[Rfam]
RNA sequence: UGCAUUCUUAAACCCUCUUGGUGGCUUCCCUGUAAAUGCUUCCAAGAUAUGAGCGAAUGCUAUAGAAAUUGCAGGAAAGUCCAAAGGGCUGCGCGUCUCCUGUGGCUCAGUCUUAUUUCAUACCUGCAACAUCU
Numbered sequence: 001u002g003c004a005u006u007c008u009u010a011a012a013c014c015c016u017c018u019u020g021g022u023g024g025c026u027u028c029c030c031u032g033u034a035a036a037u038g039c040u041u042c043c044a045a046g047a048u049a050u051g052a053g054c055g056a057a058u059g060c061u062a063u064a065g066a067a068a069u070u071g072c073a074g075g076a077a078a079g080u081c082c083a084a085a086g087g088g089c090u091g092c093g094c095g096u097c098u099c100c101u102g103u104g105g106c107u108c109a110g111u112c113u114u115a116u117u118u119c120a121u122a123c124c125u126g127c128a129a130c131a132u133c134u
Base pairs, nucleotide, nucleotide: 002060003059004058005057007053008052009051010050016047017046018045019044020043021042023040024039025038064134065133066132069129070128071127072126073125074124075123085114086113087112088111089110090109091108093106094105097102